[Rfam]
Rfam assigns this 350-nucleotide sequence from Roseinatronobacter ekhonensis to the family "Alphaproteobacteria transfer-messenger RNA". Gene Ontology term of the family: RNA catabolic process. Rfam describes the family as follows. Bacterial tmRNA, also known as 10Sa RNA or SsrA, is named for its dual tRNA and mRNA-like properties. Its role is to liberate the mRNA from a stalled ribosome. To accomplish this part of the tmRNA is used as a reading frame that ends in a translation stop signal. The broken mRNA is replaced in the ribosome by the tmRNA and translation of the tmRNA leads to addition of a proteolysis tag to the incomplete protein enabling recognition by a protease. The base pairs follow the family's consensus structure, which is taken from published work. The organism belongs to Roseinatronobacter, within Bacteria. The match comes from Rfam's covariance-model search (301 bits).

RNA sequence: CCCCUUGCACUGGUCGCCCGAGGCGCUUACAUCUGUCAUGUCUCGCAAGGGACUAUGGGCAUAAACGCGCUCGGAAUAAGCGGAUCGGACCCGGGGGCGGUACCCGGCGGCUCCACCAACAUCCUUCAUUUGGGGAUCAUGGGGCCGAAACAGGAUCGACGAACGUGUAAAGGGGUUAUGCUUUGCCUCGGUGAGCCACCACCGUUAUCGGUGCAAAACGUACAGUUGCAAAUGACAACCGUGCUCCGGUAGCAGUUGCUGCGUAAGCAGUAACCAAACCGAAACUUAAGCCCUUGCGCUUAGCCGCGUAAGGCGGGGUUCGCAGGCACCUGGCAACAGAAGCCUGCACU
Numbered sequence: 001c002c003c004c005u006u007g008c009a010c011u012g013g014u015c016g017c018c019c020g021a022g023g024c025g026c027u028u029a030c031a032u033c034u035g036u037c038a039u040g041u042c043u044c045g046c047a048a049g050g051g052a053c054u055a056u057g058g059g060c061a062u063a064a065a066c067g068c069g070c071u072c073g074g075a076a077u078a079a080g081c082g083g084a085u086c087g088g089a090c091c092c093g094g095g096g097g098c099g100g101u102a103c104c105c106g107g108c109g110g111c112u113c114c115a116c117c118a119a120c121a122u123c124c125u126u127c128a129u130u131u132g133g134g135g136a137u138c139a140u141g142g143g144g145c146c147g148a149a150a151c152a153g154g155a156u157c158g159a160c161g162a163a164c165g166u167g168u169a170a171a172g173g174g175g176u177u178a179u180g181c182u183u184u185g186c187c188u189c190g191g192u193g194a195g196c197c198a199c200c201a202c203c204g205u206u207a208u209c210g211g212u213g214c215a216a217a218a219c220g221u222a223c224a225g226u227u228g229c230a231a232a233u234g235a236c237a238a239c240c241g242u243g244c245u246c247c248g249g250u251a252g253c254a255g256u257u258g259c260u261g262c263g264u265a266a267g268c269a270g271u272a273a274c275c276a277a278a279c280c281g282a283a284a285c286u287u288a289a290g291c292c293c294u295u296g297c298g299c300u301u302a303g304c305c306g307c308g309u310a311a312g313g314c315g316g317g318g319u320u321c322g323c324a325g326g327c328a329c330c331u332g333g334c335a336a337c338a339g340a341a342g343c344c345u346g347c348a349c350u
Base pairs, nucleotide, nucleotide: 040053041052042051043050044049057188058187059186060185061184067181068180069176070175071174072173081165082164085162086161087160091107092106093105094104095103108147109146110145111144112143113142114141189204190203191202192201195214196213198212199211200210316331317330318329319328322347323346324345325344326343327342
Dot-bracket structure: .......................................(((((....)))))...(((((.....((((((........((..(((...(((((.......)))))(((((((..........................)))))))............))).)).......))))...))..)))))((((..[[.[[[)))).....]]]]].....................................................................................................[[[[..((((((]]]]..........))))))...